RNA sequence: UAACCAUUAUCGUGAGAUAAUACUGAACGUACAGAAGUCAGCAGAGGUCAUAGGAGCCGAGAGGCAAAGGAU
Number, nucleotide and partner (000 for none) at each position: 001u025002a024003a000004c000005c000006a021007u020008u019009a018010u017011c016012g000013u000014g000015a000016g011017a010018u009019a008020a007021u006022a000023c000024u002025g001026a000027a000028c000029g000030u000031a000032c000033a000034g000035a000036a000037g000038u045039c044040a000041g000042c000043a000044g039045a038046g000047g072048u071049c070050a000051u000052a000053g000054g000055a000056g065057c064058c063059g000060a000061g000062a000063g058064g057065c056066a000067a000068a000069g000070g049071a048072u047
RNA: Group II catalytic intron D1-D4-1